About this RNA:
This 78-nucleotide sequence from Mus musculus belongs to the Rfam family "mir-678 microRNA precursor family". The sequence is in the family's curated seed alignment. Gene Ontology terms of the family: RISC complex and miRNA-mediated post-transcriptional gene silencing.
[Rfam]
RNA sequence: CUGUGACUUGCAGAGCUGUGCUCCAAUAUGAGAGAUGGCCAUGCACCCGUGUCUCGGUGCAAGGACUGGAGGUGGCAG
Number, nucleotide and partner (000 for none) at each position: 001c078002u077003g076004u075005g000006a073007c072008u071009u070010g000011c000012a000013g000014a000015g000016c064017u063018g000019u061020g060021c059022u000023c057024c056025a000026a000027u000028a000029u000030g055031a054032g053033a052034g000035a050036u049037g048038g047039c000040c000041a000042u000043g000044c000045a000046c000047c038048c037049g036050u035051g000052u033053c032054u031055c030056g024057g023058u000059g021060c020061a019062a000063g017064g016065a000066c000067u000068g000069g000070a009071g008072g007073u006074g000075g004076c003077a002078g001